[Rfam]
The family of this 99-nucleotide RNA from Mesorhizobium waimense is "SAM-I/IV (S-adenosyl methionine) riboswitch aptamer".

RNA sequence: AGCCUGCAUCCAGAGUGGGCUUCGGCCCCGCCAACCAGCCUUGACCGGCAACGGUGGUGAAGACGAUGUGGUCCGCAACGGGCAACAGUAGGUCGGCAG
Numbered sequence: 001a002g003c004c005u006g007c008a009u010c011c012a013g014a015g016u017g018g019g020c021u022u023c024g025g026c027c028c029c030g031c032c033a034a035c036c037a038g039c040c041u042u043g044a045c046c047g048g049c050a051a052c053g054g055u056g057g058u059g060a061a062g063a064c065g066a067u068g069u070g071g072u073c074c075g076c077a078a079c080g081g082g083c084a085a086c087a088g089u090a091g092g093u094c095g096g097c098a099g
Base pairs, nucleotide, nucleotide: 006069007068008067009066010065015029017028018027019026020025030058031057032056035054036053038049039048040047042095043094044093045092046091071083072082073081074080
Overview:
The source organism's lineage runs through Bacteria, Pseudomonadati, Alphaproteobacteria, Phyllobacteriaceae and Mesorhizobium. The base pairs follow the family's consensus structure, which is taken from published work.